A member of the RNA family "Ruegeria trans44 sRNA" from Amylibacter sp. SFDW26, 266 nucleotides long. The family's consensus secondary structure was predicted with RNAfold.

[Rfam]
RNA sequence: UAUCGCGAUGCUCCUAUAUUACAUAGGAGACAUUGUGAUGAGGAUACUAUCGAAGAAGGCGUUGAAAGAGUUGGUCUUAUAUUCACCCCAACACGUUGCACGACUGGAAAAGGCAGGCCUAUUCCCUAAAAGGGUGCAGCUGGGCCCUAACAGAGUGGGAUGGGUUGAAAGUGAAGUCUUAGAUUGGCUUGAACAACGCUUGUUACACCGAAAGUAACCAACACAAGCUUCCUUGUGGAGCUGGGCGGCCCAACUGUGCAUAGGUU
Number, nucleotide and partner (000 for none) at each position: 001u040002a039003u038004c037005g036006c035007g034008a033009u032010g031011c000012u028013c027014c026015u025016a024017u023018a000019u000020u000021a000022c000023a017024u016025a015026g014027g013028a012029g000030a000031c010032a009033u008034u007035g006036u005037g004038a003039u002040g001041a000042g000043g000044a000045u000046a000047c000048u000049a000050u000051c000052g000053a000054a000055g000056a000057a000058g200059g199060c198061g197062u196063u195064g000065a000066a000067a000068g190069a189070g188071u187072u186073g185074g184075u183076c182077u181078u000079a000080u000081a177082u176083u175084c173085a172086c000087c000088c000089c167090a166091a165092c164093a000094c162095g161096u160097u159098g000099c157100a156101c155102g000103a000104c153105u152106g151107g000108a000109a000110a000111a000112g146113g145114c144115a000116g141117g140118c139119c000120u000121a000122u000123u000124c134125c133126c132127u000128a000129a000130a000131a000132g126133g125134g124135u000136g000137c000138a000139g118140c117141u116142g000143g000144g114145c113146c112147c000148u000149a000150a000151c106152a105153g104154a000155g101156u100157g099158g000159g097160a096161u095162g094163g000164g092165u091166u090167g089168a000169a000170a000171g000172u085173g084174a000175a083176g082177u081178c000179u000180u000181a077182g076183a075184u074185u073186g072187g071188c070189u069190u068191g000192a000193a000194c000195a063196a062197c061198g060199c059200u058201u000202g000203u000204u252205a000206c000207a000208c248209c247210g246211a000212a000213a000214g000215u000216a000217a000218c000219c000220a000221a000222c245223a000224c243225a000226a000227g241228c240229u239230u238231c237232c000233u000234u000235g000236u000237g231238g230239a229240g228241c227242u000243g224244g000245g222246c210247g209248g208249c000250c000251c000252a204253a265254c264255u263256g000257u000258g000259c000260a000261u000262a000263g255264g254265u253266u000